[Rfam]
RNA sequence: CGUCCCGUGGGAUGCGGCGGGCAGCACGGCCGACAUUGGCCGGCCGGUUGCCCGCCUUCGUUUGUUGAUGACCGAAACGCAACA
Number, nucleotide and partner (000 for none) at each position: 001c000002g000003u000004c000005c000006c000007g000008u000009g000010g000011g000012a000013u000014g000015c000016g056017g055018c054019g053020g052021g051022c050023a049024g048025c047026a000027c046028g045029g044030c043031c042032g041033a000034c000035a000036u000037u000038g000039g000040c000041c032042g031043g030044c029045c028046g027047g025048u024049u023050g022051c021052c020053c019054g018055c017056c016057u000058u071059c070060g069061u068062u067063u000064g000065u000066u000067g062068a061069u060070g059071a058072c000073c000074g000075a000076a000077a000078c000079g000080c000081a000082a000083c000084a000
Description:
Rfam assigns this 84-nucleotide RNA sequence from Chloroflexus aggregans to the family "Chloroflexi-1 RNA". Rfam's curators put it in the seed alignment. The organism belongs to Chloroflexus aggregans, within Bacteria. The base pairs follow the family's consensus structure, which is taken from published work.